[Rfam]
RNA sequence: UGAUGAGGUAGAGGUCGCGGUUUGGAAGAGUACCGCCGGGGUAAGUUAGAAGCAGCUGAGGAUCCCGGAAGGAAAGGGCAAACCGCCGAAGUGUGGCUCCCAAGCUUCAAAGGGGGCGAUGCUGGGGCUGUUCCCGAAAGGGGCAGAACUGUCACGGCCAUUUGUCGCCAUAAAUGCCGUGUUGUGCUAUCUUCAUG
Numbered sequence: 001u002g003a004u005g006a007g008g009u010a011g012a013g014g015u016c017g018c019g020g021u022u023u024g025g026a027a028g029a030g031u032a033c034c035g036c037c038g039g040g041g042u043a044a045g046u047u048a049g050a051a052g053c054a055g056c057u058g059a060g061g062a063u064c065c066c067g068g069a070a071g072g073a074a075a076g077g078g079c080a081a082a083c084c085g086c087c088g089a090a091g092u093g094u095g096g097c098u099c100c101c102a103a104g105c106u107u108c109a110a111a112g113g114g115g116g117c118g119a120u121g122c123u124g125g126g127g128c129u130g131u132u133c134c135c136g137a138a139a140g141g142g143g144c145a146g147a148a149c150u151g152u153c154a155c156g157g158c159c160a161u162u163u164g165u166c167g168c169c170a171u172a173a174a175u176g177c178c179g180u181g182u183u184g185u186g187c188u189a190u191c192u193u194c195a196u197g
Stems, first nucleotide, its partner, number of pairs: 006192006017086008033071001036068006090123005096117006124150002128146007153181006
Shown here is a 197-nucleotide RNA from Paenibacillus yonginensis, a member of the family "Lysine riboswitch aptamer". The family's consensus secondary structure is taken from published work. The match comes from Rfam's covariance-model search (97 bits).